Shown here is a 52-nucleotide RNA sequence from Devosia litorisediminis, a member of the family "ffh sRNA".
The family's RNA type in Rfam is small RNA.
The source organism's lineage runs through Bacteria, Pseudomonadota, Hyphomicrobiales, Devosiaceae and Devosia.
For this family Rfam cites "Identification of candidate structured RNAs in the marine organism 'Candidatus Pelagibacter ubique'" (Meyer et al., BMC Genomics, 2009).
Pairs were carried over by alignment from the consensus structure, which is taken from published work.
RNA sequence: GAUCCCGGAGGCCACCACCCACCAGCGCGUUGCGCCCGUGGGUGUGCUUGGC
Numbered sequence: 001g002a003u004c005c006c007g008g009a010g011g012c013c014a015c016c017a018c019c020c021a022c023c024a025g026c027g028c029g030u031u032g033c034g035c036c037c038g039u040g041g042g043u044g045u046g047c048u049u050g051g052c
Base pairs, nucleotide, nucleotide: 016044017043018042019041020040021039022038025035026034027033028032